Rfam assigns this 124-nucleotide sequence from Bucco capensis to the family "Small nucleolar RNA ACA64". The source organism's lineage runs through Eukaryota, Vertebrata, Sauropsida, Archosauria and Bucco. The base pairs follow the family's consensus structure, which was predicted with WAR. It is annotated as an H/ACA-box small nucleolar RNA. Its family is annotated with RNA processing and nucleolus in the Gene Ontology. The literature on the family includes a 2006 paper in RNA by Schattner et al., "A computational screen for mammalian pseudouridylation guide H/ACA RNAs".
Nucleotides: 124
Stems, first nucleotide, its partner, number of pairs: 006049001008047001013042001015040001021034002024031001064117001066115005076105005084097003
Number, partner (000 for none) and nucleotide at each position: 001000a002000c003000a004000g005000u006049c007000u008047g009000a010000c011000a012000a013042u014000c015040c016000c017000u018000u019000g020000u021034g022033g023000u024031c025000u026000c027000c028000u029000g030000u031024g032000c033022c034021c035000c036000u037000g038000g039000u040015g041000c042013g043000g044000u045000a046000a047008c048000u049006g050000u051000g052000c053000c054000a055000a056000c057000a058000g059000c060000a061000g062000a063000g064117g065000g066115a067114g068113c069112a070111u071000u072000a073000a074000a075000c076105u077104c078103a079102u080101u081000g082000c083000c084097c085096a086095c087000g088000g089000g090000a091000a092000a093000g094000u095086g096085u097084g098000g099000g100000g101080a102079g103078u104077g105076a106000u107000a108000c109000c110000c111070a112069u113068g114067u115066u116000c117064c118000u119000a120000g121000a122000a123000u124000c